The record is a 37-nucleotide RNA from Mucilaginibacter ginkgonis, which matches "DUF805b RNA" in Rfam. NCBI's taxonomy places the organism under Bacteria, Bacteroidota, Sphingobacteriales, Sphingobacteriaceae, Mucilaginibacter. The match comes from Rfam's covariance-model search (39 bits). Rfam classes the family as a cis-regulatory element.

RNA sequence: UAAGGAGUUGCCGAAAACCUUACAAACAGAGUAGGCG
Numbered sequence: 001u002a003a004g005g006a007g008u009u010g011c012c013g014a015a016a017a018c019c020u021u022a023c024a025a026a027c028a029g030a031g032u033a034g035g036c037g
Stems, first nucleotide, its partner, number of pairs: 002021004010036003
Dot-bracket structure: .((((....[[[.....))))............]]].